[Rfam]
RNA sequence: UAAAUUCUUCGGGGUCGGGUGUAAUUCCCAACCGGCGGUAUAGUCCGCGACCUGUCUUGAUCCGUUAUCUGUGAUAUGAACGGAGAAGAGACGGCUGAACCGGUGACUUUUAUUUUUAUGCAGAUCGCUUCGACAGAGAAUAAGAAGCAGAAGCAUAGAGAAAGAAUUCCGGUACCGACAGUAAAGUCUGGAUGAGAGAAGAAAAGC
Numbered sequence: 001u002a003a004a005u006u007c008u009u010c011g012g013g014g015u016c017g018g019g020u021g022u023a024a025u026u027c028c029c030a031a032c033c034g035g036c037g038g039u040a041u042a043g044u045c046c047g048c049g050a051c052c053u054g055u056c057u058u059g060a061u062c063c064g065u066u067a068u069c070u071g072u073g074a075u076a077u078g079a080a081c082g083g084a085g086a087a088g089a090g091a092c093g094g095c096u097g098a099a100c101c102g103g104u105g106a107c108u109u110u111u112a113u114u115u116u117u118a119u120g121c122a123g124a125u126c127g128c129u130u131c132g133a134c135a136g137a138g139a140a141u142a143a144g145a146a147g148c149a150g151a152a153g154c155a156u157a158g159a160g161a162a163a164g165a166a167u168u169c170c171g172g173u174a175c176c177g178a179c180a181g182u183a184a185a186g187u188c189u190g191g192a193u194g195a196g197a198g199a200a201g202a203a204a205a206g207c
Stems, first nucleotide, its partner, number of pairs: 005203006017029003031187002033177002035048004043175002052094007099173005179190003
Dot-bracket structure: ....((((((......(((.......))).[[((((((....[[))))...(((((((.............................)))))))....(((((.................................................................)))))]])).(((....]]))).......))))))....
The family of this 207-nucleotide sequence from Lachnospiraceae bacterium 1_4_56FAA is "FMN riboswitch aptamer (RFN element)". It scores 90 bits against the family's covariance model.